A member of the RNA family "Glycine riboswitch aptamer" from Croceicoccus sp. YJ47, 106 nucleotides long. The literature on the family includes a 2017 paper in MBio by Babina et al., "In Vivo Behavior of the Tandem Glycine Riboswitch in Bacillus subtilis". The source organism's lineage runs through Bacteria, Pseudomonadati, Pseudomonadota, Erythrobacteraceae and Croceicoccus.
RNA sequence: UAGCGAUGCUCUGGAAAGAGUCCUGCCCCACCGGGCCGGGCCACCGACGGUGUAACCUCGCGUCACGCGGGGAAGGCUCUCAGGUUUCCGUGACAGAGGGGGCGUA
Numbered sequence: 001u002a003g004c005g006a007u008g009c010u011c012u013g014g015a016a017a018g019a020g021u022c023c024u025g026c027c028c029c030a031c032c033g034g035g036c037c038g039g040g041c042c043a044c045c046g047a048c049g050g051u052g053u054a055a056c057c058u059c060g061c062g063u064c065a066c067g068c069g070g071g072g073a074a075g076g077c078u079c080u081c082a083g084g085u086u087u088c089c090g091u092g093a094c095a096g097a098g099g100g101g102g103c104g105u106a
Stems, first nucleotide, its partner, number of pairs: 007100001009098005020041004043085003046081002050079001052077001056072007